[Rfam]
This 123-nucleotide sequence from Trichogramma brassicae belongs to the Rfam family "U4atac minor spliceosomal RNA". A search with the family's covariance model found it, with a score of 82 bits. It is annotated as a spliceosomal small nuclear RNA. About the family: U4atac is an essential component of the minor U12-type spliceosome complex which is required for removal of the rarer class of eukaryotic introns (AT-AC, U12-type). The family is grouped with related families in Rfam's "U4 clan".
RNA sequence: GACAUCCUUGUCUAGGAGAGCAUAGUAUUCAAUGAUCGUAUGGAGAGGGUACUGAUGCUGAAACCAUGACAAAUAAAUGCCGCAUCGUUGAGCAUGUGCUCGAUAGAUGCAAUUUUUGGGGAG
Numbered sequence: 001g002a003c004a005u006c007c008u009u010g011u012c013u014a015g016g017a018g019a020g021c022a023u024a025g026u027a028u029u030c031a032a033u034g035a036u037c038g039u040a041u042g043g044a045g046a047g048g049g050u051a052c053u054g055a056u057g058c059u060g061a062a063a064c065c066a067u068g069a070c071a072a073a074u075a076a077a078u079g080c081c082g083c084a085u086c087g088u089u090g091a092g093c094a095u096g097u098g099c100u101c102g103a104u105a106g107a108u109g110c111a112a113u114u115u116u117u118g119g120g121g122a123g
Stems, first nucleotide, its partner, number of pairs: 005019002008016002020058004024053007036044002082110005088103006
Dot-bracket structure: ....((.((.....)).))(((((((((((.....((.....))..))))))).)))).......................(((((.((((((....))))))..))))).............